[Rfam]
RNA sequence: UGACGGUCGGGUCUUCUGAGUCCGCAGCACUCAGGCUACGUGUGCCUCCGCAGCAGGUGCAGGCCCAGCAGUCG
Numbered sequence: 001u002g003a004c005g006g007u008c009g010g011g012u013c014u015u016c017u018g019a020g021u022c023c024g025c026a027g028c029a030c031u032c033a034g035g036c037u038a039c040g041u042g043u044g045c046c047u048c049c050g051c052a053g054c055a056g057g058u059g060c061a062g063g064c065c066c067a068g069c070a071g072u073c074g
Stems, first nucleotide, its partner, number of pairs: 001074004006069002009066005016034006043059005
This 74-nucleotide RNA sequence from Anguilla anguilla belongs to the Rfam family "bZIP non canonical Hac1/Xbp1 intron". A reference for the family is Hooks and Griffiths-Jones (2011), "Conserved RNA structures in the non-canonical Hac1/Xbp1 intron", RNA Biol. Pairs were carried over by alignment from the consensus structure, which was predicted with RNAfold. About the family: bZIP intron RNA is a non-canonical intron that was first reported in HAC1 gene in yeast and XBP1 gene in Metazoa. The source organism's lineage runs through Eukaryota, Chordata, Teleostomi, Actinopterygii and Anguilla. By type it is a small RNA.